Rfam assigns this 81-nucleotide sequence from Orthoflavivirus nilense to the family "General Flavivirus exoribonuclease-resistant RNA element".
Lineage of the source: Viruses > Kitrinoviricota > Flasuviricetes > Flaviviridae > Orthoflavivirus nilense.
About the family: The exoribonuclease-resistant RNA elements (xrRNA) are described throughout all groups of flaviviruses. Usually, each virus harbors two xrRNAs, xrRNA1 and xrRNA2, in the beginning of the 3' UTR. The formation of these stem-loops, especially xrRNA1, is vital to ensure resistance against XRN1 activity.
It is one of the family's seed sequences.
[Rfam]
RNA sequence: GAAAGUCAGGCCGGGAAGUUCCCGCCACCGGAAGUUGAGUAGACGGUGCUGCCUGCGACUCAACCCCAAGGAGGACUGGGU
Numbered sequence: 001g002a003a004a005g006u007c008a009g010g011c012c013g014g015g016a017a018g019u020u021c022c023c024g025c026c027a028c029c030g031g032a033a034g035u036u037g038a039g040u041a042g043a044c045g046g047u048g049c050u051g052c053c054u055g056c057g058a059c060u061c062a063a064c065c066c067c068a069a070g071g072a073g074g075a076c077u078g079g080g081u
Stems, first nucleotide, its partner, number of pairs: 005059002007055005012024004028046003065080003069077002